[Rfam]
RNA sequence: AUCGCUUCUCAGCCUUUUGACUGAGAUAAAAGUAUAGUAUUCGUUCUUUUAAGCUUAAUGUCUGAAAAUUCCCGCAUAGCAGGACUAAUAUGUUAAACAGAUUUUUGUAUGUAUCGUAGUUUACCAAAAGUAAUUUGGUAAAUUACUUGAAUGUAGUUUUAUUACAAGUGUAAAAUAAGUUCUGUUAAA
Numbered sequence: 001a002u003c004g005c006u007u008c009u010c011a012g013c014c015u016u017u018u019g020a021c022u023g024a025g026a027u028a029a030a031a032g033u034a035u036a037g038u039a040u041u042c043g044u045u046c047u048u049u050u051a052a053g054c055u056u057a058a059u060g061u062c063u064g065a066a067a068a069u070u071c072c073c074g075c076a077u078a079g080c081a082g083g084a085c086u087a088a089u090a091u092g093u094u095a096a097a098c099a100g101a102u103u104u105u106u107g108u109a110u111g112u113a114u115c116g117u118a119g120u121u122u123a124c125c126a127a128a129a130g131u132a133a134u135u136u137g138g139u140a141a142a143u144u145a146c147u148u149g150a151a152u153g154u155a156g157u158u159u160u161a162u163u164a165c166a167a168g169u170g171u172a173a174a175a176u177a178a179g180u181u182c183u184g185u186u187a188a189a
Stems, first nucleotide, its partner, number of pairs: 007026003011022002014019001048067003052063002070084003074080002116146008128136003149182004154177001157175004